[Rfam]
Shown here is a 53-nucleotide RNA from Profundibacter amoris, a member of the family "serC leader". The literature on the family includes a 2005 paper in Genome Biol by Corbino et al., "Evidence for a second class of S-adenosylmethionine riboswitches and other regulatory RNA motifs in alpha-proteobacteria". Rfam's curators write: This family is a putative regulatory RNA structure that is found upstream of the serC-serA operon in some alpha-proteobacteria. The final stem of the structure overlaps the ribosome binding site of the serC reading frame.

RNA sequence: AAGUGGGCUACCCCUCCCCAACGAGGGGCAUUAUAUCUGGAAGGAUACCAUGU
Numbered sequence: 001a002a003g004u005g006g007g008c009u010a011c012c013c014c015u016c017c018c019c020a021a022c023g024a025g026g027g028g029c030a031u032u033a034u035a036u037c038u039g040g041a042a043g044g045a046u047a048c049c050a051u052g053u
Stems, first nucleotide, its partner, number of pairs: 011028006034047005